A member of the RNA family "raiA RNA" from Parafannyhessea umbonata, 249 nucleotides long. Lineage of the source: Bacteria > Bacillati > Actinomycetota > Coriobacteriales > Parafannyhessea. Pairs were carried over by alignment from the consensus structure, which is taken from published work.

RNA sequence: UCCAUCCAGGUCUGUGGUUGCGGGGCGUAGCCCCUAGUCCAUGGCAGACGAGGCCAAAGGGAUCCACGUAAGCUCGGGCGUGCGCGGCCGAGCGAGCAUGGCUCGUCCUAGAAGUCAGUCGCACCGCCCGUAAUCCUUCGAGGCAUCCGGCCUCCCGGGCGAGAGGGCCAACAGUGGGGGGCCGAGCAGCCCCGAAGCGACGGCCCCGGUGCGCGAGUGUGGGGUCAAAUACCAGGUCAGCUGGGUGGG
Numbered sequence: 001u002c003c004a005u006c007c008a009g010g011u012c013u014g015u016g017g018u019u020g021c022g023g024g025g026c027g028u029a030g031c032c033c034c035u036a037g038u039c040c041a042u043g044g045c046a047g048a049c050g051a052g053g054c055c056a057a058a059g060g061g062a063u064c065c066a067c068g069u070a071a072g073c074u075c076g077g078g079c080g081u082g083c084g085c086g087g088c089c090g091a092g093c094g095a096g097c098a099u100g101g102c103u104c105g106u107c108c109u110a111g112a113a114g115u116c117a118g119u120c121g122c123a124c125c126g127c128c129c130g131u132a133a134u135c136c137u138u139c140g141a142g143g144c145a146u147c148c149g150g151c152c153u154c155c156c157g158g159g160c161g162a163g164a165g166g167g168c169c170a171a172c173a174g175u176g177g178g179g180g181g182c183c184g185a186g187c188a189g190c191c192c193c194g195a196a197g198c199g200a201c202g203g204c205c206c207c208g209g210u211g212c213g214c215g216a217g218u219g220u221g222g223g224g225u226c227a228a229a230u231a232c233c234a235g236g237u238c239a240g241c242u243g244g245g246u247g248g249g
Stems, first nucleotide, its partner, number of pairs: 001249009012240003015234004041220003044054001047107006063101002072093006099227001120213005125161005165206004174198002180191003